[Rfam]
RNA sequence: CAGAGCCGACUAAGUGCCUUGGUGCGGCUACAGACGGGUAUCCGGCUCGAUGUUCAUACACCGCGACUCUUUCCUUUUACCUUGUUUGUUGCUGCUCCUUUUGGUUUU
Numbered sequence: 001c002a003g004a005g006c007c008g009a010c011u012a013a014g015u016g017c018c019u020u021g022g023u024g025c026g027g028c029u030a031c032a033g034a035c036g037g038g039u040a041u042c043c044g045g046c047u048c049g050a051u052g053u054u055c056a057u058a059c060a061c062c063g064c065g066a067c068u069c070u071u072u073c074c075u076u077u078u079a080c081c082u083u084g085u086u087u088g089u090u091g092c093u094g095c096u097c098c099u100u101u102u103g104g105u106u107u108u
Base pairs, nucleotide, nucleotide: 002108003107004106005105006104007103008102009101021098022097024095025094026093027092028091030089031088032087033086034085035084036083037081038080039079040078044074045073046065048063049062051060052059053058
The record is a 108-nucleotide RNA sequence from Caenorhabditis briggsae, which matches "mir-354 microRNA precursor family" in Rfam. Pairs were carried over by alignment from the consensus structure, which was predicted with RNAalifold. The literature on the family includes a 2004 paper in RNA by Ohler et al., "Patterns of flanking sequence conservation and a characteristic upstream motif for microRNA gene identification".